[Rfam]
RNA sequence: UUUCCCUGCGGAGUGCUCGGGUCCGCCGCAUCUCCUGGGUCCGUAGGGUCUGGUCGGCGGGCGCUGGGUGUGGAUGGCCUCUCCGCUCAUCGCCCGCCGAUUCCCGU
Numbered sequence: 001u002u003u004c005c006c007u008g009c010g011g012a013g014u015g016c017u018c019g020g021g022u023c024c025g026c027c028g029c030a031u032c033u034c035c036u037g038g039g040u041c042c043g044u045a046g047g048g049u050c051u052g053g054u055c056g057g058c059g060g061g062c063g064c065u066g067g068g069u070g071u072g073g074a075u076g077g078c079c080u081c082u083c084c085g086c087u088c089a090u091c092g093c094c095c096g097c098c099g100a101u102u103c104c105c106g107u
Base pairs, nucleotide, nucleotide: 004048005047006046007045008044009043010042016039017038018037019036020035021034052102053101054100055099056098057097058096059095060094061093062092
A member of the RNA family "EcpR1" from Starkeya nomas, 107 nucleotides long. It is annotated as a small RNA. The match comes from Rfam's covariance-model search (77 bits). Rfam describes the family as follows. Perviously named SmelC291, SmrC10, or Sra33. According to its overproduction phenotype it was renamed Elongated Cell Phenotype RNA1. Induced by stress,EcpR1 negatively regulates cell cycle master regulatory genes dnaA and gcrA at post-transcriptional level by base pairing between its strongly conserved GC-rich loop and the target mRNAs. It's regulation is hfq-independent but requires RNase E to regulate dnaA. Pairs were carried over by alignment from the consensus structure, which was predicted with WAR. Lineage of the source: Bacteria > Pseudomonadota > Alphaproteobacteria > Xanthobacteraceae > Starkeya.